[Rfam]
RNA: Group II catalytic intron D1-D4-2
Organism: Parafrankia flexibilis
RNA sequence: GAGGGUAGGCCCCUCGGAGUCGCCCUGCGGAGGGAGAUUUCAAACCACCACCUGCUGCGUUGGCUGAAGACCGUCGUGGUGAGCGAGGUGGAGAAGG
Numbered sequence: 001g002a003g004g005g006u007a008g009g010c011c012c013c014u015c016g017g018a019g020u021c022g023c024c025c026u027g028c029g030g031a032g033g034g035a036g037a038u039u040u041c042a043a044a045c046c047a048c049c050a051c052c053u054g055c056u057g058c059g060u061u062g063g064c065u066g067a068a069g070a071c072c073g074u075c076g077u078g079g080u081g082a083g084c085g086a087g088g089u090g091g092a093g094a095a096g097g
Base pairs, nucleotide, nucleotide: 001015002014003013004012005011016041017040018039019038020037021036023034024033025032026031048091049090050089051088052087053086054080055079057077058076059075061073062072063071